RNA: tRNA
Organism: Treponema parvum
RNA sequence: GCCAAUUUAGCUCAGCUGGUCCAGAGCACGUGAUUUGUAAUCUCGGGGUCCAGGGUUCGAAUCCCUGAGUUGGCU
Numbered sequence: 001g002c003c004a005a006u007u008u009a010g011c012u013c014a015g016c017u018g019g020u021c022c023a024g025a026g027c028a029c030g031u032g033a034u035u036u037g038u039a040a041u042c043u044c045g046g047g048g049u050c051c052a053g054g055g056u057u058c059g060a061a062u063c064c065c066u067g068a069g070u071u072g073g074c075u
Base pairs, nucleotide, nucleotide: 001074002073003072004071005070006069007068010027011026012025013024029045030044032042033041051067052066053065054064055063